The record is a 123-nucleotide sequence from Dorcoceras hygrometricum, which matches "MIR168 microRNA precursor family" in Rfam. On this family, see Reinhart et al., Genes Dev 2002: "MicroRNAs in plants". The family's consensus secondary structure was predicted with WAR. Gene Ontology terms of the family: miRNA-mediated post-transcriptional gene silencing and RISC complex. Rfam 15.1 lists 518 matches to the family in 218 species. Lineage of the source: Eukaryota > Euphyllophyta > eudicotyledons > asterids > Dorcoceras.
RNA sequence: CUUGCGGCGGUCUCUGAUUCGCUUGGUGCAGGUCGGGAACUCUGUCCGCCGAGGAAUUGCGUCGGAGUGCCGGAGAAGUAAGGUUCCCGCCUUGCAUCAACUGAAUCAGUGGCAGCGGUGAAU
Dot-bracket structure: .............(..((((..((((((((((.(((((.((........................................)).))))).))))))))))..))))..)..............
Numbered sequence: 001c002u003u004g005c006g007g008c009g010g011u012c013u014c015u016g017a018u019u020c021g022c023u024u025g026g027u028g029c030a031g032g033u034c035g036g037g038a039a040c041u042c043u044g045u046c047c048g049c050c051g052a053g054g055a056a057u058u059g060c061g062u063c064g065g066a067g068u069g070c071c072g073g074a075g076a077a078g079u080a081a082g083g084u085u086c087c088c089g090c091c092u093u094g095c096a097u098c099a100a101c102u103g104a105a106u107c108a109g110u111g112g113c114a115g116c117g118g119u120g121a122a123u
Stems, first nucleotide, its partner, number of pairs: 014109001017106004023100010034089005040083002